[Rfam]
RNA sequence: GCUGUACAGUGAUGAUAUUUUGGCUCCCUCUACUGACACUAGUGAGGAAAGCAGCCAUACGUUACCCAGUGUUUCUGAGUGUACAGC
Number, nucleotide and partner (000 for none) at each position: 001g087002c086003u085004g084005u083006a082007c081008a080009g000010u000011g000012a000013u000014g000015a000016u000017a000018u000019u000020u000021u000022g000023g000024c000025u000026c000027c000028c000029u000030c000031u000032a000033c000034u000035g000036a000037c000038a000039c000040u000041a000042g000043u000044g000045a000046g000047g000048a000049a000050a000051g000052c000053a000054g000055c000056c000057a000058u000059a000060c000061g000062u000063u000064a000065c000066c000067c000068a000069g000070u000071g000072u000073u000074u000075c000076u000077g000078a000079g000080u008081g007082u006083a005084c004085a003086g002087c001
This 87-nucleotide sequence from Tinamus guttatus belongs to the Rfam family "Small nucleolar RNA SNORD100". A search with the family's covariance model found it, with a score of 73 bits. For this family Rfam cites "Purified box C/D snoRNPs are able to reproduce site-specific 2'-O-methylation of target RNA in vitro" (Galardi et al., Mol Cell Biol, 2002). NCBI's taxonomy places the organism under Eukaryota, Sauria, Archosauria, Coelurosauria, Tinamus. Its family is annotated with nucleolus and RNA processing in the Gene Ontology. Rfam 15.1 lists 838 matches to the family in 626 species.